[Rfam]
RNA sequence: CGCGGGAGUCGGGCGGACGUGGUCGUCGCCAACCUGGUCAGAUCCGGAAGGAAGCAGCCACAACGAUUUCGCCGCGGGUCGUUCCGGCUCCCACCGCG
Numbered sequence: 001c002g003c004g005g006g007a008g009u010c011g012g013g014c015g016g017a018c019g020u021g022g023u024c025g026u027c028g029c030c031a032a033c034c035u036g037g038u039c040a041g042a043u044c045c046g047g048a049a050g051g052a053a054g055c056a057g058c059c060a061c062a063a064c065g066a067u068u069u070c071g072c073c074g075c076g077g078g079u080c081g082u083u084c085c086g087g088c089u090c091c092c093a094c095c096g097c098g
Stems, first nucleotide, its partner, number of pairs: 004092005011084005018076006025067004035060004043052003
The family of this 98-nucleotide sequence from Sphingomonas sp. NBWT7 is "Bacterial small signal recognition particle RNA". Rfam's curators write: The signal recognition particle (SRP) is a universally conserved ribonucleoprotein involved in the co-translational targeting of proteins to membranes. The family is grouped with related families in Rfam's "SRP clan". It is annotated as a non-coding RNA gene. NCBI's taxonomy places the organism under Bacteria, Pseudomonadati, Pseudomonadota, Sphingomonadales, Sphingomonas.